[Rfam]
RNA sequence: CACGCAACGGGAGGCUCUGACACGCGGCCCAUACCCUGGCCGCCGGGACCGCGCCGAGCCACUGGCGAGACCGACCCGCAGAUGG
Numbered sequence: 001c002a003c004g005c006a007a008c009g010g011g012a013g014g015c016u017c018u019g020a021c022a023c024g025c026g027g028c029c030c031a032u033a034c035c036c037u038g039g040c041c042g043c044c045g046g047g048a049c050c051g052c053g054c055c056g057a058g059c060c061a062c063u064g065g066c067g068a069g070a071c072c073g074a075c076c077c078g079c080a081g082a083u084g085g
Base pairs, nucleotide, nucleotide: 001085005081008078009077010076011075013060014059015058023053024052025051026050027049029047038072039071041067042066043065044064
Notes:
The record is an 85-nucleotide sequence, which matches "c-di-GMP-II-GAG riboswitch aptamer" in Rfam. The family is grouped with related families in Rfam's "c-di-GMP_II riboswitch clan". For this family Rfam cites "Bioinformatic analysis of riboswitch structures uncovers variant classes with altered ligand specificity" (Weinberg et al., Proc Natl Acad Sci U S A, 2017). Rfam's curators put it in the seed alignment.